The record is a 243-nucleotide RNA from Streptomyces pilosus, which matches "Streptomyces sRNA 4677" in Rfam. The family's RNA type in Rfam is small RNA. From the family's description: Located in the intergenic region between anti-sigma factor SCO4677 gene and a putative regulatory protein gene SCO4676. scr4677 expression requires the SCO4677 activity and scr4677 sRNA itself seem to affect the levels of the SCO4676-associated transcripts. For this family Rfam cites "Complex intra-operonic dynamics mediated by a small RNA in Streptomyces coelicolor" (Hindra et al., PLoS One, 2014).

RNA sequence: AGCUCCGGUACCGUCGGCGCCUCCCAAAGACAAGAAACGGGGCAGAGAAACCCCACCAAGCCCCACCCCUCCCGCCCGAGGCGGCCCGUCACUCGGGCGGGUGAACAUCACCGGCUCAGCUGGAUUUCCGAACCCCGGGCACCCCUACGCUCAGCGCACACAACCGAAAAAAGACUUCGGCCCCCGCCGGGACGGCAAUCCCAGUGCGAGGGCCUGACCACCAAGGAAGAAGAGCGCUUCCCG
Numbered sequence: 001a002g003c004u005c006c007g008g009u010a011c012c013g014u015c016g017g018c019g020c021c022u023c024c025c026a027a028a029g030a031c032a033a034g035a036a037a038c039g040g041g042g043c044a045g046a047g048a049a050a051c052c053c054c055a056c057c058a059a060g061c062c063c064c065a066c067c068c069c070u071c072c073c074g075c076c077c078g079a080g081g082c083g084g085c086c087c088g089u090c091a092c093u094c095g096g097g098c099g100g101g102u103g104a105a106c107a108u109c110a111c112c113g114g115c116u117c118a119g120c121u122g123g124a125u126u127u128c129c130g131a132a133c134c135c136c137g138g139g140c141a142c143c144c145c146u147a148c149g150c151u152c153a154g155c156g157c158a159c160a161c162a163a164c165c166g167a168a169a170a171a172a173g174a175c176u177u178c179g180g181c182c183c184c185c186g187c188c189g190g191g192a193c194g195g196c197a198a199u200c201c202c203a204g205u206g207c208g209a210g211g212g213c214c215u216g217a218c219c220a221c222c223a224a225g226g227a228a229g230a231a232g233a234g235c236g237c238u239u240c241c242c243g
Stems, first nucleotide, its partner, number of pairs: 007222003016076004089104006119155005179214005185208003189202004225241005